[Rfam]
RNA sequence: GUCUUAUCGAGAGUAGGCGGAGGGACUAGCCCGAUGAAGCCCGGCAACCGGCACGUUUGUGCACGGUGCUAAUUCUUGCAGAAGCGCACAGCUUUCUGAGAGAUAAGAG
Number, nucleotide and partner (000 for none) at each position: 001g000002u108003c107004u106005u105006a104007u103008c102009g000010a000011g000012a000013g042014u000015a000016g041017g040018c039019g000020g000021a000022g032023g031024g030025a000026c078027u000028a076029g075030c024031c023032c022033g000034a000035u000036g000037a000038a000039g018040c017041c016042c013043g070044g069045c068046a067047a000048c066049c065050g000051g062052c061053a060054c059055g000056u000057u000058u000059g054060u053061g052062c051063a000064c000065g049066g048067u046068g045069c044070u043071a000072a000073u000074u101075c029076u028077u000078g026079c098080a097081g096082a095083a094084g093085c000086g000087c000088a000089c000090a000091g000092c000093u084094u083095u082096c081097u080098g079099a000100g000101a074102g008103a007104u006105a005106a004107g003108a002109g000